[Rfam]
RNA sequence: GCCGCACAAAAUCAAAGCCUCCACGUGGCGUGCGGCGGACAACGGAUGAUUGAUCCGGCUAAGAUUGAUUGA
Numbered sequence: 001g002c003c004g005c006a007c008a009a010a011a012u013c014a015a016a017g018c019c020u021c022c023a024c025g026u027g028g029c030g031u032g033c034g035g036c037g038g039a040c041a042a043c044g045g046a047u048g049a050u051u052g053a054u055c056c057g058g059c060u061a062a063g064a065u066u067g068a069u070u071g072a
Stems, first nucleotide, its partner, number of pairs: 001036007017029003043057005
About this RNA: Rfam assigns this 72-nucleotide RNA sequence from Ruminococcus champanellensis to the family "HDV ribozyme from F. prausnitzii". Rfam links the family to the GO term catalytic activity. Lineage of the source: Bacteria > Bacillota > Clostridia > Ruminococcus > Ruminococcus champanellensis. Pairs were carried over by alignment from the consensus structure, which is taken from published work.